[Rfam]
RNA: U4 spliceosomal RNA
Organism: Nyctibius grandis
RNA sequence: AGCUUUGCGCAGUGGCAGUACCGUAGCCCGUGAGGUGCAUCCGAGGCGUGAUUAUGGCUAGUAGAAAACUUUUCCCAAUGCCCCGCCGUGAUGACUUAAAAUACAGUCGCCAUCGGCAAUUUUUGAGGGUCUCUGCGGAGA
Numbered sequence: 001a002g003c004u005u006u007g008c009g010c011a012g013u014g015g016c017a018g019u020a021c022c023g024u025a026g027c028c029c030g031u032g033a034g035g036u037g038c039a040u041c042c043g044a045g046g047c048g049u050g051a052u053u054a055u056g057g058c059u060a061g062u063a064g065a066a067a068a069c070u071u072u073u074c075c076c077a078a079u080g081c082c083c084c085g086c087c088g089u090g091a092u093g094a095c096u097u098a099a100a101a102u103a104c105a106g107u108c109g110c111c112a113u114c115g116g117c118a119a120u121u122u123u124u125g126a127g128g129g130u131c132u133c134u135g136c137g138g139a140g141a
Base pairs, nucleotide, nucleotide: 020052022050023049024048026047027046028045034042035041085117086116087115088113089112090111092109093108094107095106096105130141131140132139133138